[Rfam]
RNA sequence: UUUGAGAACCAUUUGAAUCACAUCACUACUUGAUUCAAAUGGUUCUCAAAAA
Number, nucleotide and partner (000 for none) at each position: 001u000002u049003u048004g047005a046006g045007a044008a043009c042010c041011a040012u039013u038014u037015g036016a035017a034018u033019c032020a031021c000022a000023u000024c000025a000026c000027u000028a000029c000030u000031u020032g019033a018034u017035u016036c015037a014038a013039a012040u011041g010042g009043u008044u007045c006046u005047c004048a003049a002050a000051a000052a000